Rfam assigns this 85-nucleotide sequence from Roseateles sp. DAIF2 to the family "SucA RNA motif". It scores 77 bits against the family's covariance model.
[Rfam]
RNA sequence: UCGCAAUCCGCCAACCGGUCGAGCCGUGUCGCGGAAGGUUUAUUUACCAGCCAGCAGCCUUGGAAACCGGGGCAGAAGGUGAGCG
Numbered sequence: 001u002c003g004c005a006a007u008c009c010g011c012c013a014a015c016c017g018g019u020c021g022a023g024c025c026g027u028g029u030c031g032c033g034g035a036a037g038g039u040u041u042a043u044u045u046a047c048c049a050g051c052c053a054g055c056a057g058c059c060u061u062g063g064a065a066a067c068c069g070g071g072g073c074a075g076a077a078g079g080u081g082a083g084c085g
Stems, first nucleotide, its partner, number of pairs: 002085003007035005016026004037048003050080003057073007

The literature on the family includes a 2007 paper in Nucleic Acids Res by Weinberg et al., "Identification of 22 candidate structured RNAs in bacteria using the CMfinder comparative genomics pipeline". The base pairs follow the family's consensus structure, which is taken from published work. Rfam classes the family as a cis-regulatory element. The source organism's lineage runs through Bacteria, Pseudomonadati, Pseudomonadota, Betaproteobacteria and Roseateles.